Shown here is a 241-nucleotide RNA sequence from Okeania sp. KiyG1, a member of the family "HNH endonuclease-associated RNA and ORF (HEARO) RNA".
RNA sequence: GUCAAUGACCCAACACUAAUUCCUAGAAUAUAGUGUGGGCUUGUAGGGCUAGUCUUUACAGGCUCAGAGUUGACCCGGCUAAGUCUUAACUGGCUGCGUUAUCGGUAAGCGUUAAAUACCUACCUUGGAAUGCCUCGCCAGUUCCAAGCUCUAGAACCAUAUAGUUAAACAUUCUAUAUUGGGUAUUGAAAGUGCUAUUUGGAUAGUUACCGACCGAUAACUUUGCUUCGGCGAACAUUAC
Numbered sequence: 001g002u003c004a005a006u007g008a009c010c011c012a013a014c015a016c017u018a019a020u021u022c023c024u025a026g027a028a029u030a031u032a033g034u035g036u037g038g039g040c041u042u043g044u045a046g047g048g049c050u051a052g053u054c055u056u057u058a059c060a061g062g063c064u065c066a067g068a069g070u071u072g073a074c075c076c077g078g079c080u081a082a083g084u085c086u087u088a089a090c091u092g093g094c095u096g097c098g099u100u101a102u103c104g105g106u107a108a109g110c111g112u113u114a115a116a117u118a119c120c121u122a123c124c125u126u127g128g129a130a131u132g133c134c135u136c137g138c139c140a141g142u143u144c145c146a147a148g149c150u151c152u153a154g155a156a157c158c159a160u161a162u163a164g165u166u167a168a169a170c171a172u173u174c175u176a177u178a179u180u181g182g183g184u185a186u187u188g189a190a191a192g193u194g195c196u197a198u199u200u201g202g203a204u205a206g207u208u209a210c211c212g213a214c215c216g217a218u219a220a221c222u223u224u225g226c227u228u229c230g231g232c233g234a235a236c237a238u239u240a241c
Stems, first nucleotide, its partner, number of pairs: 001074006010039002013036006040062009077227003081223001082095004098221009120154002124148008135234005157202003161198005169193002172190003176186003
About this RNA:
The family's RNA type in Rfam is non-coding RNA gene. Lineage of the source: Bacteria > Cyanophyceae > Oscillatoriales > Microcoleaceae > Okeania.